[Rfam]
RNA: L31-Gammaproteobacteria ribosomal protein leader
RNA sequence: CGUAUGGUGCUUAGCAGCAAUAAUGACUGACUAAGUGGCGAUACGGCCUUAUACAGAGGU
Numbered sequence: 001c002g003u004a005u006g007g008u009g010c011u012u013a014g015c016a017g018c019a020a021u022a023a024u025g026a027c028u029g030a031c032u033a034a035g036u037g038g039c040g041a042u043a044c045g046g047c048c049u050u051a052u053a054c055a056g057a058g059g060u
Base pairs, nucleotide, nucleotide: 001045002044003043004042005041007039008038011034012033013032014031015029016028017027